[Rfam]
The record is a 173-nucleotide sequence from Anaerocolumna aminovalerica, which matches "Lysine riboswitch aptamer" in Rfam. It scores 130 bits against the family's covariance model. Taxonomically the source falls in Anaerocolumna (Bacteria, Bacillota, Clostridia, Lachnospiraceae).

RNA sequence: UAUUUUGGUAGAGGCGCAUCUUUUAAGACUAUAUUACAGGAUAUGGCAGACAUAGAGGAAUGUAAUAGAAAGGAAAAGAUGCCGAAAUUAAGGUAAUUCUGCAUUAUCUUAGUUGGGCUUAUGGUUAAUAACUAUAUGACUGUCAUCAUAUCUGAUGGAGUGCUACCUAAAGA
Numbered sequence: 001u002a003u004u005u006u007g008g009u010a011g012a013g014g015c016g017c018a019u020c021u022u023u024u025a026a027g028a029c030u031a032u033a034u035u036a037c038a039g040g041a042u043a044u045g046g047c048a049g050a051c052a053u054a055g056a057g058g059a060a061u062g063u064a065a066u067a068g069a070a071a072g073g074a075a076a077a078g079a080u081g082c083c084g085a086a087a088u089u090a091a092g093g094u095a096a097u098u099c100u101g102c103a104u105u106a107u108c109u110u111a112g113u114u115g116g117g118c119u120u121a122u123g124g125u126u127a128a129u130a131a132c133u134a135u136a137u138g139a140c141u142g143u144c145a146u147c148a149u150a151u152c153u154g155a156u157g158g159a160g161u162g163c164u165a166c167c168u169a170a171a172g173a
Base pairs, nucleotide, nucleotide: 007167008166009165010164011163016082017081018080019079020078021077022076023075024074032067033066034065035064036063037062038061086114087113088112089111090110091109092108093107094106095105096104097103115141116140118138120136121135122134123133124132125131143158144157145156146155147154148153